[Rfam]
RNA sequence: AGGUAGAAUGAUAAAAACACAUGAAUCGGUUGGUAGUCCGGUCCUAGCUUUGGCUAGCAGUAACCUGCCCCUCCUGGGUUGUCCCUUCAUUUGAAUUCAAAA
Numbered sequence: 001a002g003g004u005a006g007a008a009u010g011a012u013a014a015a016a017a018c019a020c021a022u023g024a025a026u027c028g029g030u031u032g033g034u035a036g037u038c039c040g041g042u043c044c045u046a047g048c049u050u051u052g053g054c055u056a057g058c059a060g061u062a063a064c065c066u067g068c069c070c071c072u073c074c075u076g077g078g079u080u081g082u083c084c085c086u087u088c089a090u091u092u093g094a095a096u097u098c099a100a101a102a
Base pairs, nucleotide, nucleotide: 004094006092007091008090009089010088011087025042026041027040028039029038044057045056046055047054048053067079068078069077070076
The record is a 102-nucleotide RNA sequence from Abiotrophia defectiva, which matches "azaaromatic riboswitch aptamer (yjdF RNA)" in Rfam.
It scores 76 bits against the family's covariance model.
Lineage of the source: Bacteria > Bacillota > Bacilli > Abiotrophia > Abiotrophia defectiva.
Pairs were carried over by alignment from the consensus structure, which is taken from published work.